[Rfam]
RNA sequence: GCCCGGGGGUGCCUUGACGAGGGGUGUCAAGCUCUUUAGACUCUUGUACCCCUUAAUCUCGCGGGGCGUAUUGCCUUGCGAAAUUUUUGUGUCGAAAGACAAUCAGUGGAGCUAGUAGA
Numbered sequence: 001g002c003c004c005g006g007g008g009g010u011g012c013c014u015u016g017a018c019g020a021g022g023g024g025u026g027u028c029a030a031g032c033u034c035u036u037u038a039g040a041c042u043c044u045u046g047u048a049c050c051c052c053u054u055a056a057u058c059u060c061g062c063g064g065g066g067c068g069u070a071u072u073g074c075c076u077u078g079c080g081a082a083a084u085u086u087u088u089g090u091g092u093c094g095a096a097a098g099a100c101a102a103u104c105a106g107u108g109g110a111g112c113u114a115g116u117a118g119a
Base pairs, nucleotide, nucleotide: 004016005015006014007013008012021050022049024047025046026045029042032039033038059081060080061079062078063077064076065075066074067073087114089112090111091100092099093098